[Rfam]
RNA sequence: AAAGAAGUAGUAUGCCGCAACGUAUCCUCUACGGGCUUUGUUGCGGAUAAUUCUUUAUAUAGAGUACUAGGAGUGCAUAGUGGCCCGUAUAGCAGGCAUUAACAUUCCUGAU
Numbered sequence: 001a002a003a004g005a006a007g008u009a010g011u012a013u014g015c016c017g018c019a020a021c022g023u024a025u026c027c028u029c030u031a032c033g034g035g036c037u038u039u040g041u042u043g044c045g046g047a048u049a050a051u052u053c054u055u056u057a058u059a060u061a062g063a064g065u066a067c068u069a070g071g072a073g074u075g076c077a078u079a080g081u082g083g084c085c086c087g088u089a090u091a092g093c094a095g096g097c098a099u100u101a102a103c104a105u106u107c108c109u110g111a112u
Stems, first nucleotide, its partner, number of pairs: 004056004009051001011049003026096003032087004041110001

A member of the RNA family "Alpha operon ribosome binding site" from Vibrio ziniensis, 112 nucleotides long. The family's consensus secondary structure is taken from published work. Rfam describes the family as follows. The bacterial alpha operon ribosome binding site is surrounded by this complex pseudoknotted structure.